[Rfam]
Annotation:
The family of this 54-nucleotide RNA sequence from Sodalis-like symbiont of Philaenus spumarius is "L31-Gammaproteobacteria ribosomal protein leader". For this family Rfam cites "Discovery of 20 novel ribosomal leader candidates in bacteria and archaea" (Eckert and Weinberg, BMC Microbiol, 2020). The base pairs follow the family's consensus structure, which is taken from published work. It scores 47 bits against the family's covariance model.
RNA sequence: CGCGUGGUGUCUAGCUAAAGUAAACUGGAUUGCGACGCGGCCUUGCGAAGAGGU
Numbered sequence: 001c002g003c004g005u006g007g008u009g010u011c012u013a014g015c016u017a018a019a020g021u022a023a024a025c026u027g028g029a030u031u032g033c034g035a036c037g038c039g040g041c042c043u044u045g046c047g048a049a050g051a052g053g054u
Stems, first nucleotide, its partner, number of pairs: 001039005007033002011028004